This 134-nucleotide RNA from Micromonospora radicis belongs to the Rfam family "c-di-AMP riboswitch aptamer (ydaO/yuaA leader)".
The source organism's lineage runs through Bacteria, Bacillati, Actinomycetes, Micromonosporaceae and Micromonospora.
Rfam's curators write: This family represents a conserved RNA structure found upstream of the ydaO and yuaA genes in Bacillus subtilis and related genes in other bacteria.
[Rfam]
RNA sequence: CGGCGGCCGCCGCCUAAUCGCCCGCCAGGGCGAACCGGGGAACCAGGUUCCUGGGGUGCAUCCGCGUACGCGCGGUAGGGAUCUUCCGUCCCGAACCCGUCAGCUAACCCGGUCGGCGGCUGACGGAAGGACAU
Dot-bracket structure: ..........((((...((((((....))))))((((((....((......))(((.....((((......))))..((((.......))))...))).........)))))).))))................
Numbered sequence: 001c002g003g004c005g006g007c008c009g010c011c012g013c014c015u016a017a018u019c020g021c022c023c024g025c026c027a028g029g030g031c032g033a034a035c036c037g038g039g040g041a042a043c044c045a046g047g048u049u050c051c052u053g054g055g056g057u058g059c060a061u062c063c064g065c066g067u068a069c070g071c072g073c074g075g076u077a078g079g080g081a082u083c084u085u086c087c088g089u090c091c092c093g094a095a096c097c098c099g100u101c102a103g104c105u106a107a108c109c110c111g112g113u114c115g116g117c118g119g120c121u122g123a124c125g126g127a128a129g130g131a132c133a134u
Stems, first nucleotide, its partner, number of pairs: 011118004018033006034113006044053002054098003062075004078092004